[Rfam]
RNA sequence: UCGCGCCCGCCAGGAGAGAGCUUCGCAACCGACCGCGAAGCCGCCGAAGGCGCAGAGGGCGAAUCGAAAGACGAGCCCUCGAACGCUCAGGCAAAAGGACUGGCCAACGCUU
Numbered sequence: 001u002c003g004c005g006c007c008c009g010c011c012a013g014g015a016g017a018g019a020g021c022u023u024c025g026c027a028a029c030c031g032a033c034c035g036c037g038a039a040g041c042c043g044c045c046g047a048a049g050g051c052g053c054a055g056a057g058g059g060c061g062a063a064u065c066g067a068a069a070g071a072c073g074a075g076c077c078c079u080c081g082a083a084c085g086c087u088c089a090g091g092c093a094a095a096a097g098g099a100c101u102g103g104c105c106a107a108c109g110c111u112u
Stems, first nucleotide, its partner, number of pairs: 009104005020041006043092003046088002050086003056079005
RNA: Glycine riboswitch aptamer
Organism: Methylibium sp. NZG